The record is a 76-nucleotide sequence from Drosophila rhopaloa, which matches "mir-965 microRNA precursor family" in Rfam. A reference for the family is Huang et al. (2012), "The regulation of silkworm fibroin L chain production by miRNA-965 and miRNA-1926 in insect cells", Bioorg Khim. The source organism's lineage runs through Eukaryota, Panarthropoda, Dicondylia, Neoptera and Sophophora. A search with the family's covariance model found it, with a score of 79 bits.
RNA sequence: AUUUUGGGGGGUGAAACUGUACGUUGUAUGUGUCAUUCUUUAAAAUCCAUAAGCGUAUAGCUUUUCCCCUUAAAAG
Numbered sequence: 001a002u003u004u005u006g007g008g009g010g011g012u013g014a015a016a017c018u019g020u021a022c023g024u025u026g027u028a029u030g031u032g033u034c035a036u037u038c039u040u041u042a043a044a045a046u047c048c049a050u051a052a053g054c055g056u057a058u059a060g061c062u063u064u065u066c067c068c069c070u071u072a073a074a075a076g
Base pairs, nucleotide, nucleotide: 003074004073005072006071007070009068010067011066013064014063017060018059019058020057021056024053025052027051028050029049030048